[Rfam]
RNA sequence: UGCUGAGGAAAUCCUCGAUAGUUAACUGCAUCCGGUUUUCUAAAACUUCGACAGUUAACUGCCGAUGGACAU
Dot-bracket structure: ...........((.(((.((((((((((.......................)))))))))).))).))....
A member of the RNA family "MIR2629 microRNA precursor family" from Medicago truncatula, 72 nucleotides long. The match comes from Rfam's covariance-model search (64 bits).